[Rfam]
The family of this 46-nucleotide RNA sequence from Smaragdicoccus niigatensis is "L31-Actinobacteria ribosomal protein leader".
Rfam classes the family as a cis-regulatory leader.
Rfam's curators put it in the seed alignment.
The family's consensus secondary structure is taken from published work.
Nucleotides: 046
Base pairs, nucleotide, nucleotide: 003046004045005044007041008040009039010038015035016034017033018032019031021030022029
Number, partner (000 for none) and nucleotide at each position: 001000c002000c003046g004045g005044u006000u007041c008040c009039g010038g011000u012000u013000c014000a015035c016034g017033u018032g019031a020000a021030c022029g023000a024000a025000a026000g027000a028000g029022c030021g031019u032018c033017a034016c035015g036000a037000c038010c039009c040008g041007g042000c043000g044005a045004c046003c